[Rfam]
RNA sequence: UUUACCUUUAAGUUAAUCCAGAGAGAUUAGCAAGGUCUAAAACUAAUAUUUAGGAUUAGUAUAUCUUUUGCUAUAAAUCCUUGAUAAAAAAGUCCCUUGCCAAUCUUCUGGCAGGGGAUUUUUUAU
Numbered sequence: 001u002u003u004a005c006c007u008u009u010a011a012g013u014u015a016a017u018c019c020a021g022a023g024a025g026a027u028u029a030g031c032a033a034g035g036u037c038u039a040a041a042a043c044u045a046a047u048a049u050u051u052a053g054g055a056u057u058a059g060u061a062u063a064u065c066u067u068u069u070g071c072u073a074u075a076a077a078u079c080c081u082u083g084a085u086a087a088a089a090a091a092g093u094c095c096c097u098u099g100c101c102a103a104u105c106u107u108c109u110g111g112c113a114g115g116g117g118a119u120u121u122u123u124u125a126u
Base pairs, nucleotide, nucleotide: 004036005035006034007033008032013030014029015028016027017026018025044089047086048085049084050083052081053080054079055078056077057076090121091120092119093118094117095116096115097114098113099112100111101110102109

Rfam assigns this 126-nucleotide RNA sequence from Orenia metallireducens to the family "PyrR binding site". A search with the family's covariance model found it, with a score of 60 bits. This family represents the PyrR binding site and terminator structure. The source organism's lineage runs through Bacteria, Bacillati, Bacillota, Halanaerobiales and Orenia. A reference for the family is Bonner et al. (2001), "Molecular recognition of pyr mRNA by the Bacillus subtilis attenuation regulatory protein PyrR", Nucleic Acids Res. The family's consensus secondary structure is taken from published work.